Description: tpke11: a 76-nucleotide RNA sequence from Lonsdalea quercina. The organism belongs to Lonsdalea, within Bacteria. The family's RNA type in Rfam is small RNA.
[Rfam]
RNA sequence: UGUCGGCAAGGCAAUCAGCACGGGCGUCGGGGAAACUCUGCGCCCGUGCACGCAUGUUGAGGGCAGAUAACAAGCA
Numbered sequence: 001u002g003u004c005g006g007c008a009a010g011g012c013a014a015u016c017a018g019c020a021c022g023g024g025c026g027u028c029g030g031g032g033a034a035a036c037u038c039u040g041c042g043c044c045c046g047u048g049c050a051c052g053c054a055u056g057u058u059g060a061g062g063g064c065a066g067a068u069a070a071c072a073a074g075c076a
Base pairs, nucleotide, nucleotide: 003017005015018049019048020047021046022045023044024043025042026041029038030037031036